[Rfam]
RNA sequence: CACAGUCAAGUCAAAUUCAGCCCUGUUCCCGUGGUAGCAGGGGCUGGCCCGGAUGACUGCCACAGCAAACUCUGCAGCUCAUGGGCCCUGGGUCCCCUGCCCUGGGACCUGGGGAUAAGUUUGGCUAUGGACACAG
Numbered sequence: 001c002a003c004a005g006u007c008a009a010g011u012c013a014a015a016u017u018c019a020g021c022c023c024u025g026u027u028c029c030c031g032u033g034g035u036a037g038c039a040g041g042g043g044c045u046g047g048c049c050c051g052g053a054u055g056a057c058u059g060c061c062a063c064a065g066c067a068a069a070c071u072c073u074g075c076a077g078c079u080c081a082u083g084g085g086c087c088c089u090g091g092g093u094c095c096c097c098u099g100c101c102c103u104g105g106g107a108c109c110u111g112g113g114g115a116u117a118a119g120u121u122u123g124g125c126u127a128u129g130g131a132c133a134c135a136g
Stems, first nucleotide, its partner, number of pairs: 003059003018046004022041006074128001076126004086114003090110002

Notes:
A member of the RNA family "Small nucleolar RNA SNORA5" from Bos indicus, 136 nucleotides long. Clan: SNORA5 clan. The base pairs follow the family's consensus structure, which was predicted with RNAfold. Rfam describes the family as follows. ACA5 is a member of the H/ACA class of snoRNA that guide the sites of modification of uridines to pseudouridines.